[Rfam]
This 95-nucleotide RNA from Salvelinus namaycush belongs to the Rfam family "Small nucleolar RNA U83B".
The family's RNA type in Rfam is C/D-box small nucleolar RNA.
The source organism's lineage runs through Eukaryota, Vertebrata, Teleostomi, Clupeocephala and Salvelinus.
A search with the family's covariance model found it, with a score of 72 bits.
Rfam describes the family as follows. U83B belongs to the C/D family of snoRNAs. U83B like U83A has no documented RNA target and they share the same host gene with the C/D box snoRNA U43 (RPL3).

RNA sequence: UUUGCGUCUGUGAUGAGACCACGGAACACUGCGUCAGGCAUGGCGUCCGACACGCAUGAGGAUACAUUCCAUGCUGCCUUCCUUCUGAGACCACA
Numbered sequence: 001u002u003u004g005c006g007u008c009u010g011u012g013a014u015g016a017g018a019c020c021a022c023g024g025a026a027c028a029c030u031g032c033g034u035c036a037g038g039c040a041u042g043g044c045g046u047c048c049g050a051c052a053c054g055c056a057u058g059a060g061g062a063u064a065c066a067u068u069c070c071a072u073g074c075u076g077c078c079u080u081c082c083u084u085c086u087g088a089g090a091c092c093a094c095a
Stems, first nucleotide, its partner, number of pairs: 001095001003093002006091001
A reference for the family is Duga et al. (2000), "The intron-containing L3 ribosomal protein gene (RPL3): sequence analysis and identification of U43 and of two novel intronic small nucleolar RNAs", Biochim Biophys Acta.